[Rfam]
RNA sequence: CAAGAUUUUCGGGGUAUGGUGAGCCUUGCAAGGCAAUUCCAAACCGGCGGUUAUAGCCCGCGACUCUAUCGCAAAACGAUAGACUGAUCUGGUGGAACUCCAGAGCCGACGGUACAGUCCGGAUGAAAGGAAAUCGAA
Numbered sequence: 001c002a003a004g005a006u007u008u009u010c011g012g013g014g015u016a017u018g019g020u021g022a023g024c025c026u027u028g029c030a031a032g033g034c035a036a037u038u039c040c041a042a043a044c045c046g047g048c049g050g051u052u053a054u055a056g057c058c059c060g061c062g063a064c065u066c067u068a069u070c071g072c073a074a075a076a077c078g079a080u081a082g083a084c085u086g087a088u089c090u091g092g093u094g095g096a097a098c099u100c101c102a103g104a105g106c107c108g109a110c111g112g113u114a115c116a117g118u119c120c121g122g123a124u125g126a127a128a129g130g131a132a133a134u135c136g137a138a
Stems, first nucleotide, its partner, number of pairs: 004135007017041003043118002045108002047061004056106002065083002088104005110121003
The record is a 138-nucleotide sequence from Spirochaeta isovalerica, which matches "FMN riboswitch aptamer (RFN element)" in Rfam. NCBI's taxonomy places the organism under Bacteria, Spirochaetota, Spirochaetia, Spirochaetales, Spirochaeta. The family's consensus secondary structure is taken from published work.